[Rfam]
RNA sequence: UUUCUUGGAGAUAAAAACACAGGGCGGUUGGUAGUCCGUCCGCGGGCCGCGCUCCCGUCAGUAACCCUCCCUCCCGGGUCGUCCAUUCUCCAUAUCUUUGGA
Dot-bracket structure: .....((((((..........((((((........))))))(((((.......)))))..........(((....)))........))))))..........
Overview:
This 102-nucleotide RNA from Pseudoflavonifractor sp. An184 belongs to the Rfam family "azaaromatic riboswitch aptamer (yjdF RNA)". The match comes from Rfam's covariance-model search (82 bits). NCBI's taxonomy places the organism under Bacteria, Bacillati, Bacillota, Clostridia, Pseudoflavonifractor. The family's consensus secondary structure is taken from published work.